Record summary: The record is a 120-nucleotide sequence from Limosilactobacillus panis, which matches "FMN riboswitch aptamer (RFN element)" in Rfam. NCBI's taxonomy places the organism under Bacteria, Bacillati, Bacilli, Lactobacillaceae, Limosilactobacillus panis.

[Rfam]
RNA sequence: AAUUGUCUUCAAGGCAGGGUGCAAUUCCCGACCGGCGGUGAUAGCCCGCAACCCGUGUGAACGGUUGAAUUUGGUGAAAUUCCAAUGCCGACAGUAAAGUCUGGUAUAGAGAAGAUUUCU
Numbered sequence: 001a002a003u004u005g006u007c008u009u010c011a012a013g014g015c016a017g018g019g020u021g022c023a024a025u026u027c028c029c030g031a032c033c034g035g036c037g038g039u040g041a042u043a044g045c046c047c048g049c050a051a052c053c054c055g056u057g058u059g060a061a062c063g064g065u066u067g068a069a070u071u072u073g074g075u076g077a078a079a080u081u082c083c084a085a086u087g088c089c090g091a092c093a094g095u096a097a098a099g100u101c102u103g104g105u106a107u108a109g110a111g112a113a114g115a116u117u118u119c120u
Stems, first nucleotide, its partner, number of pairs: 005116006017029003031100002033090002035049004044088002053064002069086001071085004092103003
It scores 95 bits against the family's covariance model.
The family's consensus secondary structure is taken from published work.